[Rfam]
RNA sequence: AAACGAACAACGCUUAAUCCUUGCGGAAACGACAAGGAGCGGGGGAUCCAACGGAACGCAAGCACAUCCGAGUAUCCGGGUGUCCGAACGUUCAAGGGGUGAAUCAUCAGGUUCCGUUAUAGGAAUCUGAAGUAGGGCGACUCUCUUGCCCGAAUCCGGCAGCUAACCUCGUAAGCGCAAUAGAGAGGUAAC
Numbered sequence: 001a002a003a004c005g006a007a008c009a010a011c012g013c014u015u016a017a018u019c020c021u022u023g024c025g026g027a028a029a030c031g032a033c034a035a036g037g038a039g040c041g042g043g044g045g046a047u048c049c050a051a052c053g054g055a056a057c058g059c060a061a062g063c064a065c066a067u068c069c070g071a072g073u074a075u076c077c078g079g080g081u082g083u084c085c086g087a088a089c090g091u092u093c094a095a096g097g098g099g100u101g102a103a104u105c106a107u108c109a110g111g112u113u114c115c116g117u118u119a120u121a122g123g124a125a126u127c128u129g130a131a132g133u134a135g136g137g138c139g140a141c142u143c144u145c146u147u148g149c150c151c152g153a154a155u156c157c158g159g160c161a162g163c164u165a166a167c168c169u170c171g172u173a174a175g176c177g178c179a180a181u182a183g184a185g186a187g188g189u190a191a192c
Base pairs, nucleotide, nucleotide: 011177012176013175014174018038019037020036021035022034023033039172040171041170042169043168044167049096097157098156099155105132107130108129109128110127111126112125113124114123115122135151136150137149138148
Rfam assigns this 192-nucleotide RNA from Cohnella herbarum to the family "c-di-AMP riboswitch aptamer (ydaO/yuaA leader)". About the family: This family represents a conserved RNA structure found upstream of the ydaO and yuaA genes in Bacillus subtilis and related genes in other bacteria. The ydaO/yuaA element is thought to act as a genetic 'off' switch for the ydaO and yuaA genes in its native state. It is believed that the element may be triggered during osmotic shock leading to activation of ydaO, a predicted amino acid transporter gene, and members of the yuaA-yubG operon which code for KtrA and KtrB K+ transporters. Lineage of the source: Bacteria > Bacillati > Bacillota > Paenibacillaceae > Cohnella.